[Rfam]
RNA sequence: CCCAUGACCCCGCGGUGCUGGCGGACCCCCGACCUGGCAGCACCGCGGGGUUUCCA
Dot-bracket structure: ...(..((((((((((((((.(.............).)))))))))))))).)...
Numbered sequence: 001c002c003c004a005u006g007a008c009c010c011c012g013c014g015g016u017g018c019u020g021g022c023g024g025a026c027c028c029c030c031g032a033c034c035u036g037g038c039a040g041c042a043c044c045g046c047g048g049g050g051u052u053u054c055c056a
Stems, first nucleotide, its partner, number of pairs: 004053001007051014022036001